Shown here is a 165-nucleotide RNA from Streptomyces xinghaiensis, a member of the family "c-di-AMP riboswitch aptamer (ydaO/yuaA leader)". NCBI's taxonomy places the organism under Bacteria, Actinomycetes, Kitasatosporales, Streptomycetaceae, Streptomyces. It scores 47 bits against the family's covariance model.
RNA sequence: GCCGCGCAAGCGCCGUAGGCAGGAGCGGGGGACCCAGGUAAGUGCCGUGAGGACCGCCCGCGCGGACCGACCGGCUAGGGGUGAAGCCCAGUGCGGGAGCACUCGGCAGGGCCGCUCACAGCCCCAACCCGACAGCUCACCUCGCAGGCGUCGGUGAGAGAGACG
Numbered sequence: 001g002c003c004g005c006g007c008a009a010g011c012g013c014c015g016u017a018g019g020c021a022g023g024a025g026c027g028g029g030g031g032a033c034c035c036a037g038g039u040a041a042g043u044g045c046c047g048u049g050a051g052g053a054c055c056g057c058c059c060g061c062g063c064g065g066a067c068c069g070a071c072c073g074g075c076u077a078g079g080g081g082u083g084a085a086g087c088c089c090a091g092u093g094c095g096g097g098a099g100c101a102c103u104c105g106g107c108a109g110g111g112c113c114g115c116u117c118a119c120a121g122c123c124c125c126a127a128c129c130c131g132a133c134a135g136c137u138c139a140c141c142u143c144g145c146a147g148g149c150g151u152c153g154g155u156g157a158g159a160g161a162g163a164c165g
Base pairs, nucleotide, nucleotide: 001149002148003147011023025145026144027143028142029141030140035078079130080129081128087106088105090103091102092101093100094099109124110123111122112121
About the family: This family represents a conserved RNA structure found upstream of the ydaO and yuaA genes in Bacillus subtilis and related genes in other bacteria.